Ribosomal protein L10 leader: a 141-nucleotide RNA sequence from Bacillus subtilis. Rfam's curators put it in the seed alignment. The base pairs follow the family's consensus structure, which was predicted with CMfinder. The family's RNA type in Rfam is cis-regulatory leader.
RNA sequence: AAUAGAAUAUCAUUUAUACCGUAGACAGUAGGGGCCUAACCGCUUAAUUAUCCUACCGAGGUGUAUAUUAUCACAGCUAUUACGUUACGUAUGCUUGUAUAUACAGCCUCCAUGUCUCAUGGAGGCUUUUUAUAUGGAAUC
Numbered sequence: 001a002a003u004a005g006a007a008u009a010u011c012a013u014u015u016a017u018a019c020c021g022u023a024g025a026c027a028g029u030a031g032g033g034g035c036c037u038a039a040c041c042g043c044u045u046a047a048u049u050a051u052c053c054u055a056c057c058g059a060g061g062u063g064u065a066u067a068u069u070a071u072c073a074c075a076g077c078u079a080u081u082a083c084g085u086u087a088c089g090u091a092u093g094c095u096u097g098u099a100u101a102u103a104c105a106g107c108c109u110c111c112a113u114g115u116c117u118c119a120u121g122g123a124g125g126c127u128u129u130u131u132a133u134a135u136g137g138a139a140u141c
Base pairs, nucleotide, nucleotide: 028056029055030054031053032052033051034043035042106126107125108124109123110122111121112120113119114118